Overview:
The record is a 178-nucleotide RNA sequence from Priestia veravalensis, which matches "Lysine riboswitch aptamer" in Rfam. The base pairs follow the family's consensus structure, which is taken from published work. A search with the family's covariance model found it, with a score of 142 bits. Lineage of the source: Bacteria > Bacillati > Caryophanales > Bacillaceae > Priestia.

[Rfam]
RNA sequence: AGUGAAGAUAGAGGUGCGAAUUUUAAGAGUACACAUUUGGAAGAGUAUGAGCUCUAAAGACAAAUGUGGAAAGGAAAAUUUGCCGAAGUGAAUGACAUCUCAUAGAGUCAUUUGCUGGUUCUGCGUUGAAUAAAUGUAGGAUUGUCAAGAAUGUGUUUCUUGGAGAGCUAUCUCACGG
Numbered sequence: 001a002g003u004g005a006a007g008a009u010a011g012a013g014g015u016g017c018g019a020a021u022u023u024u025a026a027g028a029g030u031a032c033a034c035a036u037u038u039g040g041a042a043g044a045g046u047a048u049g050a051g052c053u054c055u056a057a058a059g060a061c062a063a064a065u066g067u068g069g070a071a072a073g074g075a076a077a078a079u080u081u082g083c084c085g086a087a088g089u090g091a092a093u094g095a096c097a098u099c100u101c102a103u104a105g106a107g108u109c110a111u112u113u114g115c116u117g118g119u120u121c122u123g124c125g126u127u128g129a130a131u132a133a134a135u136g137u138a139g140g141a142u143u144g145u146c147a148a149g150a151a152u153g154u155g156u157u158u159c160u161u162g163g164a165g166a167g168c169u170a171u172c173u174c175a176c177g178g
Stems, first nucleotide, its partner, number of pairs: 006173006016083009032068008087116010098105001117143011145163007